Shown here is a 91-nucleotide RNA sequence from Salinomyces thailandicus, a member of the family "HDV ribozyme from F. prausnitzii". A reference for the family is Webb et al. (2009), "Widespread occurrence of self-cleaving ribozymes", Science. Rfam links the family to the GO term catalytic activity. The match comes from Rfam's covariance-model search (45 bits).
[Rfam]
RNA sequence: CCCUGUCGAAGAGAGCGCACCUCAUCGUGGUGACAGGGUGGCAACGGGUCAGCAGCUCUUCCACUUCUGCUGACCUGGCUAAGACGCUCCA
Numbered sequence: 001c002c003c004u005g006u007c008g009a010a011g012a013g014a015g016c017g018c019a020c021c022u023c024a025u026c027g028u029g030g031u032g033a034c035a036g037g038g039u040g041g042c043a044a045c046g047g048g049u050c051a052g053c054a055g056c057u058c059u060u061c062c063a064c065u066u067c068u069g070c071u072g073a074c075c076u077g078g079c080u081a082a083g084a085c086g087c088u089c090c091a
Stems, first nucleotide, its partner, number of pairs: 001038007019031003045077011